Archaeal small subunit ribosomal RNA: a 600-nucleotide part of an RNA from Salinigranum rubrum. Taxonomically the source falls in Salinigranum (Archaea, Methanobacteriati, Methanobacteriota, Haloferacaceae). On this family, see Yusupov et al., Science 2001: "Crystal structure of the ribosome at 5.5 A resolution".
RNA sequence: UGGCGGGGGAGCACUACAACCGGAGGAGCCUGCGGUUUAAUUGGACUCAACGCCGGACAUCUCACCAGCUCCGACUACAGUGAUGACGACCAGGUUGAUGACCUUGUCACGACGCUGUAGAGAGGAGGUGCAUGGCCGCCGUCAGCUCGUACCGUGAGGCGUCCUGUUAAGUCAGGCAACGAGCGAGACCCGCACUCUUAAUUGCCAGCAUCAGGUUUCCUGGAUGGGUACAUUAAGAGGACUGCCGCUGCUAAAGCGGAGGAAGGAACGGGCAACGGUAGGUCAGUAUGCCCCGAAUGAGCUGGGCUACACGCGGGCUACAAUGGUCAGGACAAUGGGUUCCAACCUCGAAAGAGGACGGUAAUCUCCGAAACCUGGUCGUAGUUCGGAUUGUGGGCUGAAACUCGCCCACAUGAAGCUGGAUUCGGUAGUAAUCGCGUUUCAGCAGAGCGCGGUGAAUACGUCCCUGCUCCUUGCACACACCGCCCGUCAAAGCACCCGAGUGGGGUCCGGAUGAGGCCUGGCUCCCAGGUCGAAUCUGGGCUCCGCAAGGGGGCUUAAGUCGAACAAGGUAGCCGUAGGGGAAUCUGCGGCUGGAUC
Numbered sequence: 001u002g003g004c005g006g007g008g009g010a011g012c013a014c015u016a017c018a019a020c021c022g023g024a025g026g027a028g029c030c031u032g033c034g035g036u037u038u039a040a041u042u043g044g045a046c047u048c049a050a051c052g053c054c055g056g057a058c059a060u061c062u063c064a065c066c067a068g069c070u071c072c073g074a075c076u077a078c079a080g081u082g083a084u085g086a087c088g089a090c091c092a093g094g095u096u097g098a099u100g101a102c103c104u105u106g107u108c109a110c111g112a113c114g115c116u117g118u119a120g121a122g123a124g125g126a127g128g129u130g131c132a133u134g135g136c137c138g139c140c141g142u143c144a145g146c147u148c149g150u151a152c153c154g155u156g157a158g159g160c161g162u163c164c165u166g167u168u169a170a171g172u173c174a175g176g177c178a179a180c181g182a183g184c185g186a187g188a189c190c191c192g193c194a195c196u197c198u199u200a201a202u203u204g205c206c207a208g209c210a211u212c213a214g215g216u217u218u219c220c221u222g223g224a225u226g227g228g229u230a231c232a233u234u235a236a237g238a239g240g241a242c243u244g245c246c247g248c249u250g251c252u253a254a255a256g257c258g259g260a261g262g263a264a265g266g267a268a269c270g271g272g273c274a275a276c277g278g279u280a281g282g283u284c285a286g287u288a289u290g291c292c293c294c295g296a297a298u299g300a301g302c303u304g305g306g307c308u309a310c311a312c313g314c315g316g317g318c319u320a321c322a323a324u325g326g327u328c329a330g331g332a333c334a335a336u337g338g339g340u341u342c343c344a345a346c347c348u349c350g351a352a353a354g355a356g357g358a359c360g361g362u363a364a365u366c367u368c369c370g371a372a373a374c375c376u377g378g379u380c381g382u383a384g385u386u387c388g389g390a391u392u393g394u395g396g397g398c399u400g401a402a403a404c405u406c407g408c409c410c411a412c413a414u415g416a417a418g419c420u421g422g423a424u425u426c427g428g429u430a431g432u433a434a435u436c437g438c439g440u441u442u443c444a445g446c447a448g449a450g451c452g453c454g455g456u457g458a459a460u461a462c463g464u465c466c467c468u469g470c471u472c473c474u475u476g477c478a479c480a481c482a483c484c485g486c487c488c489g490u491c492a493a494a495g496c497a498c499c500c501g502a503g504u505g506g507g508g509u510c511c512g513g514a515u516g517a518g519g520c521c522u523g524g525c526u527c528c529c530a531g532g533u534c535g536a537a538u539c540u541g542g543g544c545u546c547c548g549c550a551a552g553g554g555g556g557c558u559u560a561a562g563u564c565g566a567a568c569a570a571g572g573u574a575g576c577c578g579u580a581g582g583g584g585a586a587u588c589u590g591c592g593g594c595u596g597g598a599u600c
Stems, first nucleotide, its partner, number of pairs: 001480002003477003007474007016464002020428005025321001027319008035310002041056004065305007075120004080115002088108003092104003124294002127292004133288002135283003138279004145184006152159002163176004190271003195239007205228002209226004214221002242262002245259005325380007337368003342361002346357004387418001392413007434456008483571001485568001488565002491562001493559004498554003503549013518534007573596010
Overview: The base pairs follow the family's consensus structure, which is taken from published work.